The family of this 72-nucleotide RNA sequence from Medicago truncatula is "MIR2629 microRNA precursor family". The organism belongs to Medicago, within Eukaryota. The base pairs follow the family's consensus structure, which was predicted with RNAalifold.

[Rfam]
RNA sequence: UGCCGAAGUUUUCCUCAGUAGUUAACUGCAGCUGUUUUUCUAAAACUUCGGCAGUUAACUACCGAAGGGUAU
Numbered sequence: 001u002g003c004c005g006a007a008g009u010u011u012u013c014c015u016c017a018g019u020a021g022u023u024a025a026c027u028g029c030a031g032c033u034g035u036u037u038u039u040c041u042a043a044a045a046c047u048u049c050g051g052c053a054g055u056u057a058a059c060u061a062c063c064g065a066a067g068g069g070u071a072u
Stems, first nucleotide, its partner, number of pairs: 012068002015065002018062012